[Rfam]
Rfam assigns this 142-nucleotide RNA from Sus scrofa to the family "Small nucleolar RNA SNORA4".
Rfam classes the family as an H/ACA-box small nucleolar RNA.
Clan: SNORA4 clan.

RNA sequence: CUACCAAAAGUUUGUUUUGGGGGAAGGUUUUCUUUAAUAACCUUUACCAAGUUUAGGCUAUUUGGGAGAGUAAAGAAGAGACCACGCUCCACAGUGAGCUAUACCAUUUAGUAUAGUUCAUUACUAUUUUGUGGCCUACAUU
Dot-bracket structure: ...(((((...(.((((....((.(((((.........))))..).))......)))).)))))).............((.(((((......((((((((((((......)))))))))))).......))))).)).....